[Rfam]
RNA sequence: UGAUGUCCCUCACCCACCACUGAAGAUCCCGGGUGGGGGAGGGCCAGGGGAAGGGGAUC
Numbered sequence: 001u002g003a004u005g006u007c008c009c010u011c012a013c014c015c016a017c018c019a020c021u022g023a024a025g026a027u028c029c030c031g032g033g034u035g036g037g038g039g040a041g042g043g044c045c046a047g048g049g050g051a052a053g054g055g056g057a058u059c
Base pairs, nucleotide, nucleotide: 007043008042009041010040011039013037014036015035016034017033018032025059026058027057028056029055030054
Dot-bracket structure: ......(((((.((((((......[[[[[[.)))))).)))))..........]]]]]]
Rfam assigns this 59-nucleotide RNA sequence from Eptatretus burgeri to the family "Antizyme RNA frameshifting stimulation element". Rfam's curators write: This family represents a structural element which is found in antizyme mRNA and is known to promote frameshifting. Antizyme genes have have two partially overlapping open reading frames, the second, which encodes the functional protein requires +1 translational frameshifting. This frameshift is stimulated by a pseudoknot present 3' of the frameshift site in the antizyme mRNA. The frameshifting efficiency is dependent on the level of polyamines in the cell, when the polyamine concentration is high frameshifting is more likely to occur which leads to an increase in the quantity of functional antizyme produced. Its family is annotated with translational frameshifting in the Gene Ontology. Rfam classes the family as a frameshift element. The family's consensus secondary structure is taken from published work. On this family, see Ivanov et al., J Mol Biol 2004: "Identification of a new antizyme mRNA +1 frameshifting stimulatory pseudoknot in a subset of diverse invertebrates and its apparent absence in intermediate species".